[Rfam]
RNA: Bacterial RNase P class A
RNA sequence: UCGGAAAAGGACGCAAUCGCUGCCAUUUAUUGGGAGAGGAAAGUCUGGACUUCGCAGAAAAAGGUGCCAGUGAAAAACUGGGGGCCGUAAGGCUACGGAAAGUGUAACAGAAAACAAACCGCUAAUUCUACCUAGGUAAGAUUAGACAGGAUGAAAAUGUCGAGCUUAUGGCUCGACCUCUUUGUGGAAACACAAGGACGCUGCAAACCCCACCUGAAGCAAGAAAGAGUUCGUUUCAGUUUUUCGCUCAGGAACUCUUAGAGUCGCUCGAGGAUUUUGGUGACAAAGUCCCUAGAUGAAUGAUUGCCUCGCACAGAAUCCGGCUUACCCCUUUUCCGACAGC
Numbered sequence: 001u002c003g004g005a006a007a008a009g010g011a012c013g014c015a016a017u018c019g020c021u022g023c024c025a026u027u028u029a030u031u032g033g034g035a036g037a038g039g040a041a042a043g044u045c046u047g048g049a050c051u052u053c054g055c056a057g058a059a060a061a062a063g064g065u066g067c068c069a070g071u072g073a074a075a076a077a078c079u080g081g082g083g084g085c086c087g088u089a090a091g092g093c094u095a096c097g098g099a100a101a102g103u104g105u106a107a108c109a110g111a112a113a114a115c116a117a118a119c120c121g122c123u124a125a126u127u128c129u130a131c132c133u134a135g136g137u138a139a140g141a142u143u144a145g146a147c148a149g150g151a152u153g154a155a156a157a158u159g160u161c162g163a164g165c166u167u168a169u170g171g172c173u174c175g176a177c178c179u180c181u182u183u184g185u186g187g188a189a190a191c192a193c194a195a196g197g198a199c200g201c202u203g204c205a206a207a208c209c210c211c212a213c214c215u216g217a218a219g220c221a222a223g224a225a226a227g228a229g230u231u232c233g234u235u236u237c238a239g240u241u242u243u244u245c246g247c248u249c250a251g252g253a254a255c256u257c258u259u260a261g262a263g264u265c266g267c268u269c270g271a272g273g274a275u276u277u278u279g280g281u282g283a284c285a286a287a288g289u290c291c292c293u294a295g296a297u298g299a300a301u302g303a304u305u306g307c308c309u310c311g312c313a314c315a316g317a318a319u320c321c322g323g324c325u326u327a328c329c330c331c332u333u334u335u336c337c338g339a340c341a342g343c
Stems, first nucleotide, its partner, number of pairs: 001339010013307006020036002023033003041326003045323005050219004057245004062215005067081005082096001083094004097210002102208002104204003119150002122145006129138003159177006178200001179198008223265002227257006236250001238248003272291008